[Rfam]
RNA sequence: UUCCUAAAAGGGCAAACCAUUCGAAAGAAUGGGACGCAAAACCUUGGGUCUAAGGCAGCAAAGCUGCUAUGAUUGCCAGGUUGCAGGA
Numbered sequence: 001u002u003c004c005u006a007a008a009a010g011g012g013c014a015a016a017c018c019a020u021u022c023g024a025a026a027g028a029a030u031g032g033g034a035c036g037c038a039a040a041a042c043c044u045u046g047g048g049u050c051u052a053a054g055g056c057a058g059c060a061a062a063g064c065u066g067c068u069a070u071g072a073u074u075g076c077c078a079g080g081u082u083g084c085a086g087g088a
Base pairs, nucleotide, nucleotide: 012037013036017032018031019030020029021028022027040082041081042080043079045078046077047076048073049072050071055067056066057065058064
Rfam assigns this 88-nucleotide RNA from Pelotomaculum thermopropionicum to the family "c-di-GMP-I riboswitch aptamer".
Taxonomically the source falls in Pelotomaculum thermopropionicum (Bacteria, Bacillota, Clostridia, Pelotomaculum).